The family of this 72-nucleotide RNA sequence from Halarchaeum acidiphilum is "tRNA". NCBI's taxonomy places the organism under Archaea, Methanobacteriati, Halobacteria, Halobacteriales, Halarchaeum acidiphilum. The family's consensus secondary structure is taken from published work. It scores 72 bits against the family's covariance model.
RNA sequence: GCCUGGGUAGCUUAGCGGUAAAGCGCGUCCUUGGUAAGGACGAGAGCGCGGGUUCAAAUCCCGCCCUAGGCU
Numbered sequence: 001g002c003c004u005g006g007g008u009a010g011c012u013u014a015g016c017g018g019u020a021a022a023g024c025g026c027g028u029c030c031u032u033g034g035u036a037a038g039g040a041c042g043a044g045a046g047c048g049c050g051g052g053u054u055c056a057a058a059u060c061c062c063g064c065c066c067u068a069g070g071c072u
Base pairs, nucleotide, nucleotide: 001071002070003069004068005067006066007065010024011023012022013021026042027041028040029039030038048064049063050062051061052060